[Rfam]
RNA sequence: CACGACCGGCCGGACACCCGUGUGCCCGGCCCACAAGUGGAGGCUCCGAUCUCCCACCUGACCGACCCCUGGUCGGCAGGUCUCGGGUCAGACAGGUGGCCCAUCGUUCCGUACGGACGAUGGGGAGCUGUCUAUCGCGCCUCGCGGCUCACCGCGGCGGUGCUCCCUGAGUGUGAGGAGCCCUGCCUGUGACCCGUCCGGGGCGUUUUUU
Numbered sequence: 001c002a003c004g005a006c007c008g009g010c011c012g013g014a015c016a017c018c019c020g021u022g023u024g025c026c027c028g029g030c031c032c033a034c035a036a037g038u039g040g041a042g043g044c045u046c047c048g049a050u051c052u053c054c055c056a057c058c059u060g061a062c063c064g065a066c067c068c069c070u071g072g073u074c075g076g077c078a079g080g081u082c083u084c085g086g087g088u089c090a091g092a093c094a095g096g097u098g099g100c101c102c103a104u105c106g107u108u109c110c111g112u113a114c115g116g117a118c119g120a121u122g123g124g125g126a127g128c129u130g131u132c133u134a135u136c137g138c139g140c141c142u143c144g145c146g147g148c149u150c151a152c153c154g155c156g157g158c159g160g161u162g163c164u165c166c167c168u169g170a171g172u173g174u175g176a177g178g179a180g181c182c183c184u185g186c187c188u189g190u191g192a193c194c195c196g197u198c199c200g201g202g203g204c205g206u207u208u209u210u211u
Base pairs, nucleotide, nucleotide: 004089005088006087007086009084012027013026028082029081030080031079034060035059037057038056039055040054041052042051062076063075064074065073066072067071091132092131093130094129095128097124101123102122103121104120105119106118107117108116139204140203141202142201143200144199145196146195147194153191154190155189156187157186158185159184160183162181163180164179165178166177
Shown here is a 211-nucleotide RNA sequence from Streptomyces triculaminicus, a member of the family "Streptomyces RNA 1601". Identified by deep sequencing of transcriptome at the end of exponential growth phase. Appears longer on northern blot than sequencing transcript. Streptomyces specific. A search with the family's covariance model found it, with a score of 152 bits. On this family, see Vockenhuber et al., RNA Biol 2011: "Deep sequencing-based identification of small non-coding RNAs in Streptomyces coelicolor".